The family of this 121-nucleotide RNA sequence from Tupaia belangeri is "Small nucleolar RNA SNORA26". The family has 76 seed sequences and 1,943 matches in Rfam 15.1. Its Rfam clan is "SNORA27 clan".
RNA sequence: UUUCCUGUGCCCUGGUGACGCCAUGCUUUUAGAGGCUAACACGGAAGGGUAAAAUAAGUCUCCAUAAAAUCCAGAGAAGAGAUGAUAAACUCCUCUUUGGAUCCUGUCUGGAGUCACAACU
Numbered sequence: 001u002u003u004c005c006u007g008u009g010c011c012c013u014g015g016u017g018a019c020g021c022c023a024u025g026c027u028u029u030u031a032g033a034g035g036c037u038a039a040c041a042c043g044g045a046a047g048g049g050u051a052a053a054a055u056a057a058g059u060c061u062c063c064a065u066a067a068a069a070u071c072c073a074g075a076g077a078a079g080a081g082a083u084g085a086u087a088a089a090c091u092c093c094u095c096u097u098u099g100g101a102u103c104c105u106g107u108c109u110g111g112a113g114u115c116a117c118a119a120c121u
Stems, first nucleotide, its partner, number of pairs: 002051001004049003008045001010043001014040001016038002019035001021032001058115001060113005071100007079092003083088001
From the family's description: The snoRNA HBI-6 belong to the H/ACA family of snoRNAs, guiding the pseudouridylation of position U4522 if the 28S rRNA. HBI-6 is the human orthologue of mouse MBI-6 snoRNA.